[Rfam]
Shown here is a 92-nucleotide RNA sequence from Lupinus albus, a member of the family "Small nucleolar RNA Z157/R69/R10". Rfam classes the family as a C/D-box small nucleolar RNA.

RNA sequence: GUGUGUGCGGUGAUGAUACAAUUGUGGACUAGAGUUUCUGAUCUGAGAAAACUCAGAAUUUGAUUACAAACCCUUGGCUGUCUGAGCACAAC
Dot-bracket structure: ...(((((............................((...((((((....))))).)...))......................)))))..
For this family Rfam cites "The high diversity of snoRNAs in plants: identification and comparative study of 120 snoRNA genes from Oryza sativa" (Chen et al., Nucleic Acids Res, 2003). Its Rfam clan is "SNORD52 clan".